[Rfam]
RNA: Clostridiales-1 RNA
RNA sequence: UGAUACAAGGGCGAAAAGCCUGUGCGUUUUAUGCUAGCAUAAAAAAGCACAGAUUUGGAGCCCGCAACGUCUGAGAAAGUAGCCCGUUAGGGCGGAUUUCGAAGAGGUUAGAGCUGUGGGAGUGCGUAGCACGGAGCAGCUCGUAGUAUCA
Numbered sequence: 001u002g003a004u005a006c007a008a009g010g011g012c013g014a015a016a017a018g019c020c021u022g023u024g025c026g027u028u029u030u031a032u033g034c035u036a037g038c039a040u041a042a043a044a045a046a047g048c049a050c051a052g053a054u055u056u057g058g059a060g061c062c063c064g065c066a067a068c069g070u071c072u073g074a075g076a077a078a079g080u081a082g083c084c085c086g087u088u089a090g091g092g093c094g095g096a097u098u099u100c101g102a103a104g105a106g107g108u109u110a111g112a113g114c115u116g117u118g119g120g121a122g123u124g125c126g127u128a129g130c131a132c133g134g135a136g137c138a139g140c141u142c143g144u145a146g147u148a149u150c151a
Stems, first nucleotide, its partner, number of pairs: 001151006010062003016056003020052006027045002029042005066109003070105003075100004082093004111142007122132004